Small nucleolar RNA Z266: a 93-nucleotide RNA from Arabidopsis lyrata.
[Rfam]
RNA sequence: AUGGAUUAUGGAUGAUGAUUCAAUUAGAUGUGCGAAUGGUUUCAUUAUGAGCUCAAAAACUCUAUUUGGCAAUUUUUAUCUGACAUCUUCCAU
Numbered sequence: 001a002u003g004g005a006u007u008a009u010g011g012a013u014g015a016u017g018a019u020u021c022a023a024u025u026a027g028a029u030g031u032g033c034g035a036a037u038g039g040u041u042u043c044a045u046u047a048u049g050a051g052c053u054c055a056a057a058a059a060c061u062c063u064a065u066u067u068g069g070c071a072a073u074u075u076u077u078a079u080c081u082g083a084c085a086u087c088u089u090c091c092a093u
Stems, first nucleotide, its partner, number of pairs: 001093005008086003
Dot-bracket structure: (((((..(((.........................................................................)))..)))))
Pairs were carried over by alignment from the consensus structure, which was predicted with PFOLD. By type it is a C/D-box small nucleolar RNA. Taxonomically the source falls in Arabidopsis lyrata (Eukaryota, Viridiplantae, Tracheophyta, Camelineae).